[Rfam]
RNA sequence: UUUUAUCUCAUGGGGUGCACUGCUAUUUUUGAUGCAGGGCUGAGAAGCAAAGGCUAACCCAAUGAACCUGAUCCAGAUUAUGCUGGCGUAGGGAUUGAGAUCCUCUAUUUAU
Numbered sequence: 001u002u003u004u005a006u007c008u009c010a011u012g013g014g015g016u017g018c019a020c021u022g023c024u025a026u027u028u029u030u031g032a033u034g035c036a037g038g039g040c041u042g043a044g045a046a047g048c049a050a051a052g053g054c055u056a057a058c059c060c061a062a063u064g065a066a067c068c069u070g071a072u073c074c075a076g077a078u079u080a081u082g083c084u085g086g087c088g089u090a091g092g093g094a095u096u097g098a099g100a101u102c103c104u105c106u107a108u109u110u111a112u
Stems, first nucleotide, its partner, number of pairs: 006100005011061004017040002020037004047054002067092004073086004
RNA: TPP riboswitch aptamer (THI element)
Organism: Marinomonas sp. S3726